Overview: Small nucleolar RNA SNORA84: a 135-nucleotide RNA sequence from Calyptomena viridis. The family's RNA type in Rfam is H/ACA-box small nucleolar RNA. Taxonomically the source falls in Calyptomena (Eukaryota, Opisthokonta, Neoaves, Telluraves). The family's consensus secondary structure was predicted with WAR. The literature on the family includes a 2002 paper in Curr Biol by Marker et al., "Experimental RNomics: identification of 140 candidates for small non-messenger RNAs in the plant Arabidopsis thaliana".
RNA sequence: GCCCUGUGGUUACUGGGCUCUGCUCUGUCCGUGCAGUGCCUCAGUUGGUACAGAUGGGCCCACAGUGACACUGUGAUUAAUGCGUGGAGUCUGUGACCCCUGAGCAGCUUCCACAGCCCGGUCACAGUCACACCC
Numbered sequence: 001g002c003c004c005u006g007u008g009g010u011u012a013c014u015g016g017g018c019u020c021u022g023c024u025c026u027g028u029c030c031g032u033g034c035a036g037u038g039c040c041u042c043a044g045u046u047g048g049u050a051c052a053g054a055u056g057g058g059c060c061c062a063c064a065g066u067g068a069c070a071c072u073g074u075g076a077u078u079a080a081u082g083c084g085u086g087g088a089g090u091c092u093g094u095g096a097c098c099c100c101u102g103a104g105c106a107g108c109u110u111c112c113a114c115a116g117c118c119c120g121g122u123c124a125c126a127g128u129c130a131c132a133c134c135c
Base pairs, nucleotide, nucleotide: 001059002058003057004056007050008049010047012045013044014043015042016041017040020036021035022034023033071127073125074124075123076122077121078120082117083116084114085113086112087111089109091107092106093105094104